[Rfam]
Nucleotides: 126
Base pairs, nucleotide, nucleotide: 016108017107018106020104021103022102023101024100025099026098028096030094031093032092033091035089036088037087038086039085040084044080045079
Number, partner (000 for none) and nucleotide at each position: 001000u002000g003000g004000u005000a006000a007000u008000g009000a010000u011000a012000g013000a014000g015000a016108g017107a018106g019000a020104c021103a022102g023101g024100g025099a026098a027000c028096a029000a030094g031093c032092a033091g034000a035089g036088c037087a038086u039085g040084g041000a042000u043000u044080g045079a046000g047000u048000u049000u050000a051000c052000u053000a054000a055000a056000a057000c058000a059000u060000u061000a062000a063000a064000c065000g066000a067000c068000u069000c070000u071000g072000u073000u074000u075000u076000g077000u078000c079045u080044c081000u082000a083000c084040c085039c086038a087037u088036g089035c090000a091033c092032u093031g094030c095000c096028u097000c098026u099025u100024c101023c102022c103021u104020g105000g106018c107017u108016c109000c110000c111000u112000c113000u114000u115000u116000u117000c118000u119000c120000u121000c122000u123000c124000u125000c126000u
A member of the RNA family "MIR408 microRNA precursor family" from Arabidopsis lyrata, 126 nucleotides long.
Taxonomically the source falls in Arabidopsis lyrata (Eukaryota, Pentapetalae, Brassicales, Camelineae).
It scores 117 bits against the family's covariance model.